[Rfam]
U1 spliceosomal RNA: a 162-nucleotide RNA sequence from Cloeon dipterum. Rfam describes the family as follows. U1 is a small nuclear RNA (snRNA) component of the spliceosome (involved in pre-mRNA splicing). Its 5' end forms complementary base pairs with the 5' splice junction, thus defining the 5' donor site of an intron.
RNA sequence: AUACUUACCUGGCGUAGGGGUUACCAUGAUCAUCAAGGUGGUUCCCUCAGGGUGAGGCCUUUCCAUUGCACUGCGGUUGGGCUGACCCCUGCGAUUACCCCAAAUGUGGGUAACUCGGGCGCGUAAUUUUUGGUAGUGAGGACUGCGUUCGCGCUGUCCUCU
Numbered sequence: 001a002u003a004c005u006u007a008c009c010u011g012g013c014g015u016a017g018g019g020g021u022u023a024c025c026a027u028g029a030u031c032a033u034c035a036a037g038g039u040g041g042u043u044c045c046c047u048c049a050g051g052g053u054g055a056g057g058c059c060u061u062u063c064c065a066u067u068g069c070a071c072u073g074c075g076g077u078u079g080g081g082c083u084g085a086c087c088c089c090u091g092c093g094a095u096u097a098c099c100c101c102a103a104a105u106g107u108g109g110g111u112a113a114c115u116c117g118g119g120c121g122c123g124u125a126a127u128u129u130u131u132g133g134u135a136g137u138g139a140g141g142a143c144u145g146c147g148u149u150c151g152c153g154c155u156g157u158c159c160u161c162u
Stems, first nucleotide, its partner, number of pairs: 012122004017047004023042005049090004054086001056083003060079001063076002092117003095113003099109002138161005145154003

The family's RNA type in Rfam is spliceosomal small nuclear RNA. The literature on the family includes a 1997 paper in Nucleic Acids Res by Zwieb, "The uRNA database". Taxonomically the source falls in Cloeon (Eukaryota, Bilateria, Dicondylia, Baetidae).